The family of this 138-nucleotide sequence from Dicentrarchus labrax is "Small nucleolar RNA SNORA29".
Clan: SNORA20 clan.
The literature on the family includes a 2001 paper in EMBO J by Huttenhofer et al., "RNomics: an experimental approach that identifies 201 candidates for novel, small, non-messenger RNAs in mouse".
Pairs were carried over by alignment from the consensus structure, which was predicted with PFOLD.
The family has 26 seed sequences and 960 matches in Rfam 15.1.
From the family's description: ACA29 is a member of the H/ACA class of snoRNA that guide the sites of modification of uridines to pseudouridines.
Gene Ontology terms of the family: RNA processing and nucleolus.

RNA sequence: AGUCCCGUUUCAGUACCUUCCACUCGCACCACCAUGAAUGGACGGCUAUGCUAACGGGACAGAAAAGCACUGUCACGGUCUGAAGGUGUGGCUAACAUACUGUGUACCGCACCAAAUAAGAUGACGGGACAUGUCGAU
Numbered sequence: 001a002g003u004c005c006c007g008u009u010u011c012a013g014u015a016c017c018u019u020c021c022a023c024u025c026g027c028a029c030c031a032c033c034a035u036g037a038a039u040g041g042a043c044g045g046c047u048a049u050g051c052u053a054a055c056g057g058g059a060c061a062g063a064a065a066a067g068c069a070c071u072g073u074c075a076c077g078g079u080c081u082g083a084a085g086g087u088g089u090g091g092c093u094a095a096c097a098u099a100c101u102g103u104g105u106a107c108c109g110c111a112c113c114a115a116a117u118a119a120g121a122u123g124a125c126g127g128g129a130c131a132u133g134u135c136g137a138u
Stems, first nucleotide, its partner, number of pairs: 004058004016045002019042001072125004090113002